[Rfam]
RNA sequence: UUUUGUUCUCAGGGCGGGGUGAAAAUCCCUACCGGCGGUAUGCGGCUUGCGUCGCGAGCCCGCGAGCGCCUUCCCGGGUAAAUCCCGUUUCGACCGAAACGCGAUUUGCCCAGAAGGGUCAGCAGAUCAGGUGCGAAACCUGAGCCGACGGUUACAGUCCGGAUGAAAGAGAACGAGC
Numbered sequence: 001u002u003u004u005g006u007u008c009u010c011a012g013g014g015c016g017g018g019g020u021g022a023a024a025a026u027c028c029c030u031a032c033c034g035g036c037g038g039u040a041u042g043c044g045g046c047u048u049g050c051g052u053c054g055c056g057a058g059c060c061c062g063c064g065a066g067c068g069c070c071u072u073c074c075c076g077g078g079u080a081a082a083u084c085c086c087g088u089u090u091c092g093a094c095c096g097a098a099a100c101g102c103g104a105u106u107u108g109c110c111c112a113g114a115a116g117g118g119u120c121a122g123c124a125g126a127u128c129a130g131g132u133g134c135g136a137a138a139c140c141u142g143a144g145c146c147g148a149c150g151g152u153u154a155c156a157g158u159c160c161g162g163a164u165g166a167a168a169g170a171g172a173a174c175g176a177g178c
Stems, first nucleotide, its partner, number of pairs: 003176008017029003031158002033147002035063004058145002066123002127143005149161003
RNA: FMN riboswitch aptamer (RFN element)
Organism: Beijerinckia sp. 28-YEA-48